[Rfam]
RNA sequence: AUGACCCGUGCGGGAGAGCCCGAUGAACGCGAUCGGGCACCGAAGGAGCAAGCCUCCCCGCCAAUCUCUCAGGUACCCCUACCGCCCCGGUCCG
Numbered sequence: 001a002u003g004a005c006c007c008g009u010g011c012g013g014g015a016g017a018g019c020c021c022g023a024u025g026a027a028c029g030c031g032a033u034c035g036g037g038c039a040c041c042g043a044a045g046g047a048g049c050a051a052g053c054c055u056c057c058c059c060g061c062c063a064a065u066c067u068c069u070c071a072g073g074u075a076c077c078c079c080u081a082c083c084g085c086c087c088c089g090g091u092c093c094g
Stems, first nucleotide, its partner, number of pairs: 006089001008087001010085004019037004039074003042070002046068003052061002

Glycine riboswitch aptamer: a 94-nucleotide RNA from Actinomycetales bacterium SN12. The organism belongs to Actinomycetales, within Bacteria. Gene Ontology term of the family: glycine biosynthetic process.